The record is a 199-nucleotide RNA sequence from Dulcicalothrix desertica, which matches "c-di-AMP riboswitch aptamer (ydaO/yuaA leader)" in Rfam. The match comes from Rfam's covariance-model search (57 bits). NCBI's taxonomy places the organism under Bacteria, Cyanobacteriota, Cyanophyceae, Calotrichaceae, Dulcicalothrix desertica.

RNA sequence: UACUUAUGAAAACUAAGUAUAUAUAGGAACUUUCGGAACGGAGGAACCAAUUUUGGGGCGUAUCUUUUUAAAGUUCUGAGUAGAAAGUGCUGAGUGCUGAGAAAUAAACCCACUCAGAACUCAGGACUCGUAACUUUAAAAAGAGGAGUAUCUCUCAACUCUAGCCCGUCAGCUAACUUCGUAGGCAUUGAGAGGAAAC
Numbered sequence: 001u002a003c004u005u006a007u008g009a010a011a012a013c014u015a016a017g018u019a020u021a022u023a024u025a026g027g028a029a030c031u032u033u034c035g036g037a038a039c040g041g042a043g044g045a046a047c048c049a050a051u052u053u054u055g056g057g058g059c060g061u062a063u064c065u066u067u068u069u070a071a072a073g074u075u076c077u078g079a080g081u082a083g084a085a086a087g088u089g090c091u092g093a094g095u096g097c098u099g100a101g102a103a104a105u106a107a108a109c110c111c112a113c114u115c116a117g118a119a120c121u122c123a124g125g126a127c128u129c130g131u132a133a134c135u136u137u138a139a140a141a142a143g144a145g146g147a148g149u150a151u152c153u154c155u156c157a158a159c160u161c162u163a164g165c166c167c168g169u170c171a172g173c174u175a176a177c178u179u180c181g182u183a184g185g186c187a188u189u190g191a192g193a194g195g196a197a198a199c
Stems, first nucleotide, its partner, number of pairs: 004037002038182006048055002056167003064143012146161004